[Rfam]
RNA: Potassium channel RNA editing signal
Organism: Caenorhabditis sp. 36 PRJEB53466
RNA sequence: GUUGGUUUCGGGGACAUGGUCCCAAAGACGUAUCUCGGAAUGCUCGUUGGUUCGCUGUGUGCUCUUAUGGGCGUGCUCACAAUUGCACUUCCUGUGCCCGUCAUCGUUUCCAAC
Numbered sequence: 001g002u003u004g005g006u007u008u009c010g011g012g013g014a015c016a017u018g019g020u021c022c023c024a025a026a027g028a029c030g031u032a033u034c035u036c037g038g039a040a041u042g043c044u045c046g047u048u049g050g051u052u053c054g055c056u057g058u059g060u061g062c063u064c065u066u067a068u069g070g071g072c073g074u075g076c077u078c079a080c081a082a083u084u085g086c087a088c089u090u091c092c093u094g095u096g097c098c099c100g101u102c103a104u105c106g107u108u109u110c111c112a113a114c
Stems, first nucleotide, its partner, number of pairs: 001114002004111002009106003013102003018097001021094001037077002040074001049063003